[Rfam]
RNA sequence: UACUCAUGUAGAGGAUGCGAGGGAAAUCGGCCCGUCGACCAUCCGGCAACCUGCUUCAGCAGCAAGGUGCCAAUGCCUUCCCGUUACGGGACCCAUGAGAG
Number, nucleotide and partner (000 for none) at each position: 001u101002a000003c099004u098005c097006a096007u095008g094009u000010a000011g000012a000013g044014g043015a042016u041017g040018c000019g000020a000021g033022g032023g031024a000025a000026a000027u000028c000029g077030g076031c023032c022033c021034g000035u000036c000037g000038a000039c000040c017041a016042u015043c014044c013045g071046g070047c069048a068049a000050c067051c066052u064053g063054c062055u061056u000057c000058a000059g000060c000061a055062g054063c053064a052065a000066g051067g050068u048069g047070c046071c045072a000073a000074u000075g093076c030077c029078u000079u000080c090081c089082c088083g087084u000085u000086a000087c083088g082089g081090g080091a000092c000093c075094c008095a007096u006097g005098a004099g003100a000101g001